RNA sequence: GCAGCGGCAGCGCCGAGUCCGCCGACGCGCGGAACCGGGGACCCAUAACCGCCGGAGUCCAGGGACCGUCCCUGGACGGCAGUGUCCGGCGCCCGGGGUGAAUCGGUGCGCCUCUCCCGGAAGAACCGGUGAGAGCCCACCGUAGGGCCACUUCCUCGCCCGAACCCGUCAGCUAACCCGGUAGGCGUCUGGAAGAGCGAAG
Numbered sequence: 001g002c003a004g005c006g007g008c009a010g011c012g013c014c015g016a017g018u019c020c021g022c023c024g025a026c027g028c029g030c031g032g033a034a035c036c037g038g039g040g041a042c043c044c045a046u047a048a049c050c051g052c053c054g055g056a057g058u059c060c061a062g063g064g065a066c067c068g069u070c071c072c073u074g075g076a077c078g079g080c081a082g083u084g085u086c087c088g089g090c091g092c093c094c095g096g097g098g099u100g101a102a103u104c105g106g107u108g109c110g111c112c113u114c115u116c117c118c119g120g121a122a123g124a125a126c127c128g129g130u131g132a133g134a135g136c137c138c139a140c141c142g143u144a145g146g147g148c149c150a151c152u153u154c155c156u157c158g159c160c161c162g163a164a165c166c167c168g169u170c171a172g173c174u175a176a177c178c179c180g181g182u183a184g185g186c187g188u189c190u191g192g193a194a195g196a197g198c199g200a201a202g
Base pairs, nucleotide, nucleotide: 011187012186013185014184018033019032020031021030022029034182035181036180037179038178039177044095096167097166098165104142105141106140107139145161146160147159148158
Description:
This 202-nucleotide RNA sequence from Actinomadura soli belongs to the Rfam family "c-di-AMP riboswitch aptamer (ydaO/yuaA leader)". On this family, see Barrick et al., Proc Natl Acad Sci U S A 2004: "New RNA motifs suggest an expanded scope for riboswitches in bacterial genetic control". Lineage of the source: Bacteria > Bacillati > Actinomycetes > Streptosporangiales > Actinomadura. The match comes from Rfam's covariance-model search (64 bits).